[Rfam]
RNA sequence: GACGCAAAACUGCCGAGUUCCCGUCGUCCAGCACGGCAGGGAGCGGGGGACCCACUCGGGCCGGAUCCGUCCGGCCCACGGGGCGAAUCGCCACCGGCCACUCCGCCAUCGGAGGGCUCUGGAGGCGUAGCGCACUCUUUCAGCGCGAGCCCGUCAGCUCACCUCGUAGGCGACAGAAAGAGAACUC
Numbered sequence: 001g002a003c004g005c006a007a008a009a010c011u012g013c014c015g016a017g018u019u020c021c022c023g024u025c026g027u028c029c030a031g032c033a034c035g036g037c038a039g040g041g042a043g044c045g046g047g048g049g050a051c052c053c054a055c056u057c058g059g060g061c062c063g064g065a066u067c068c069g070u071c072c073g074g075c076c077c078a079c080g081g082g083g084c085g086a087a088u089c090g091c092c093a094c095c096g097g098c099c100a101c102u103c104c105g106c107c108a109u110c111g112g113a114g115g116g117c118u119c120u121g122g123a124g125g126c127g128u129a130g131c132g133c134a135c136u137c138u139u140u141c142a143g144c145g146c147g148a149g150c151c152c153g154u155c156a157g158c159u160c161a162c163c164u165c166g167u168a169g170g171c172g173a174c175a176g177a178a179a180g181a182g183a184a185c186u187c
Stems, first nucleotide, its partner, number of pairs: 011172004018042003043167006053080001081152003089127004130146004
c-di-AMP riboswitch aptamer (ydaO/yuaA leader): a 187-nucleotide RNA from Conexibacter woesei. Its family is annotated with regulation of gene expression and cyclic-di-AMP binding in the Gene Ontology. Lineage of the source: Bacteria > Actinomycetota > Conexibacteraceae > Conexibacter > Conexibacter woesei.